[Rfam]
RNA sequence: CGCAAACAUGACUGUAAGUCGCUUUGGAUAAAAGCAUCUGCUAAAUAUUGUAUU
Numbered sequence: 001c002g003c004a005a006a007c008a009u010g011a012c013u014g015u016a017a018g019u020c021g022c023u024u025u026g027g028a029u030a031a032a033a034g035c036a037u038c039u040g041c042u043a044a045a046u047a048u049u050g051u052a053u054u
Stems, first nucleotide, its partner, number of pairs: 013043001014041003021035005
RNA: UnaL2 LINE 3' element